[Rfam]
RNA sequence: AGUCUCAUUCUAGAUUAGAAUGGGCACUAUUGAUUGAUGUCCCAAAUUGGUCAAUGUGGCUAAAACUGAGACACAGGUCACGCUUCCAUAAUAGUAAAUGUACUGCAGAGGUGACAGUGAGACCCAUAAUGUUU
Number, nucleotide and partner (000 for none) at each position: 001a000002g060003u059004c058005u000006c056007a055008u054009u000010c000011u000012a000013g000014a000015u000016u000017a000018g000019a000020a000021u000022g042023g041024g040025c039026a038027c000028u000029a000030u000031u000032g000033a000034u000035u000036g000037a000038u026039g025040u024041c023042c022043c000044a000045a000046a000047u000048u000049g000050g000051u000052c000053a000054a008055u007056g006057u000058g004059g003060c002061u000062a000063a000064a000065a000066c000067u000068g000069a000070g000071a000072c000073a127074c000075a000076g124077g123078u000079c000080a000081c000082g000083c000084u000085u000086c000087c113088a112089u111090a000091a000092u108093a000094g000095u000096a000097a000098a000099u000100g000101u000102a000103c000104u000105g000106c000107a000108g092109a000110g000111g089112u088113g087114a000115c000116a000117g000118u000119g000120a000121g000122a000123c077124c076125c000126a000127u073128a000129a000130u000131g000132u000133u000134u000